[Rfam]
The family of this 113-nucleotide sequence from Francoa sonchifolia is "Plastid-psbA-1 3UTR RNA". The literature on the family includes a 2023 paper in Plant Commun by Richter et al., "Retrograde signaling in plants: A critical review focusing on the GUN pathway and beyond".

RNA sequence: UGUCGAAGCUCCAUCCACAAAUGGAUAAGGCUUUGUCUUAGUGUAUACGAGUUAGUAAAGGAGCAAUGCCAAAUUUCUUGUUCUAUCAAGAGGGUUGGUAUUGCUCCUUUUUU
Numbered sequence: 001u002g003u004c005g006a007a008g009c010u011c012c013a014u015c016c017a018c019a020a021a022u023g024g025a026u027a028a029g030g031c032u033u034u035g036u037c038u039u040a041g042u043g044u045a046u047a048c049g050a051g052u053u054a055g056u057a058a059a060g061g062a063g064c065a066a067u068g069c070c071a072a073a074u075u076u077c078u079u080g081u082u083c084u085a086u087c088a089a090g091a092g093g094g095u096u097g098g099u100a101u102u103g104c105u106c107c108u109u110u111u112u113u
Stems, first nucleotide, its partner, number of pairs: 010025005057110013071096002075092005
Dot-bracket structure: .........(((((......)))))...............................(((((((((((((.((..(((((........)))))..)).)))))))))))))...
The family's consensus secondary structure was predicted with LocARNA.